[Rfam]
RNA sequence: AGGUCAUUUCAAAGAGGGCUGAUGGGACCACAUCCAGGAGCUCUUUACGCUGUGACCAAAGACUGAGUUCUCCACUGGAUAUAAUAGUAACUUGAUAGUGCUAUGUUUUCCAGAUGGAGAUACAAGC
Numbered sequence: 001a002g003g004u005c006a007u008u009u010c011a012a013a014g015a016g017g018g019c020u021g022a023u024g025g026g027a028c029c030a031c032a033u034c035c036a037g038g039a040g041c042u043c044u045u046u047a048c049g050c051u052g053u054g055a056c057c058a059a060a061g062a063c064u065g066a067g068u069u070c071u072c073c074a075c076u077g078g079a080u081a082u083a084a085u086a087g088u089a090a091c092u093u094g095a096u097a098g099u100g101c102u103a104u105g106u107u108u109u110c111c112a113g114a115u116g117g118a119g120a121u122a123c124a125a126g127c
Stems, first nucleotide, its partner, number of pairs: 002057006014045007023037001026035001069120005076112004084104004090099003
RNA: Small nucleolar RNA SNORA25